Rfam assigns this 191-nucleotide RNA from Paenibacillus sp. YN15 to the family "c-di-AMP riboswitch aptamer (ydaO/yuaA leader)".
It scores 88 bits against the family's covariance model.
About the family: This family represents a conserved RNA structure found upstream of the ydaO and yuaA genes in Bacillus subtilis and related genes in other bacteria.

RNA sequence: CUGGUGAAAUCGCUGAAAUCCCGCAUCAUGCGGGAUACGGGGGAACCAACUGUUCCGCGGAGGGCUUUGAUUUUGGGGCCUGACGGGAACAACGGGGUGAAUCCUGUGCGGGCUUGUAGAGACGUACAGGUAGGGCGACUCUUGCCGCCCGAAUCCGGCAGCUAACCUCGCAAGCGUUGAUAAGGGGAAGG
Numbered sequence: 001c002u003g004g005u006g007a008a009a010u011c012g013c014u015g016a017a018a019u020c021c022c023g024c025a026u027c028a029u030g031c032g033g034g035a036u037a038c039g040g041g042g043g044a045a046c047c048a049a050c051u052g053u054u055c056c057g058c059g060g061a062g063g064g065c066u067u068u069g070a071u072u073u074u075g076g077g078g079c080c081u082g083a084c085g086g087g088a089a090c091a092a093c094g095g096g097g098u099g100a101a102u103c104c105u106g107u108g109c110g111g112g113c114u115u116g117u118a119g120a121g122a123c124g125u126a127c128a129g130g131u132a133g134g135g136c137g138a139c140u141c142u143u144g145c146c147g148c149c150c151g152a153a154u155c156c157g158g159c160a161g162c163u164a165a166c167c168u169c170g171c172a173a174g175c176g177u178u179g180a181u182a183a184g185g186g187g188a189a190g191g
Stems, first nucleotide, its partner, number of pairs: 011176004018036008038170005047094001095156003103130008133150004